[Rfam]
RNA sequence: GAAAGAUACGUCAUUGAGUGCAGCGUUGAUGUCAAAACUUAUUUCAAAAUUCCAACUUUUCCCAUCAGCGCUUCAUUCAAUCACGUUUCUU
Number, nucleotide and partner (000 for none) at each position: 001g000002a000003a000004a000005g000006a088007u000008a086009c085010g084011u083012c000013a081014u080015u079016g078017a077018g076019u075020g074021c000022a072023g071024c070025g069026u068027u067028g066029a000030u064031g063032u000033c000034a000035a000036a000037a000038c000039u000040u000041a000042u000043u000044u000045c000046a000047a000048a000049a000050u000051u000052c000053c000054a000055a000056c000057u000058u000059u000060u000061c000062c000063c031064a030065u000066c028067a027068g026069c025070g024071c023072u022073u000074c020075a019076u018077u017078c016079a015080a014081u013082c000083a011084c010085g009086u008087u000088u006089c000090u000091u000

A member of the RNA family "MIR397 microRNA precursor family" from Cucumis melo, 91 nucleotides long. Pairs were carried over by alignment from the consensus structure, which was predicted with WAR. NCBI's taxonomy places the organism under Eukaryota, Euphyllophyta, Benincaseae, Cucumis, Cucumis melo subsp. agrestis. Rfam links the family to the GO terms miRNA-mediated post-transcriptional gene silencing and RISC complex.